Small nucleolar RNA SNORD99: a 71-nucleotide sequence from Meleagris gallopavo.
Pairs were carried over by alignment from the consensus structure, which was predicted with RNAalifold.
The family's RNA type in Rfam is C/D-box small nucleolar RNA.

RNA sequence: CCUGGUCAGUGAUGACACCUUUCUUUGGAGACUGCUGGAUGAAUCCUGCGGAUAUGGGGCUGAGGCCAGGC
Numbered sequence: 001c002c003u004g005g006u007c008a009g010u011g012a013u014g015a016c017a018c019c020u021u022u023c024u025u026u027g028g029a030g031a032c033u034g035c036u037g038g039a040u041g042a043a044u045c046c047u048g049c050g051g052a053u054a055u056g057g058g059g060c061u062g063a064g065g066c067c068a069g070g071c
Stems, first nucleotide, its partner, number of pairs: 001070005
Gene Ontology terms of the family: nucleolus and RNA processing.
For this family Rfam cites "Purified box C/D snoRNPs are able to reproduce site-specific 2'-O-methylation of target RNA in vitro" (Galardi et al., Mol Cell Biol, 2002).
Rfam's curators put it in the seed alignment.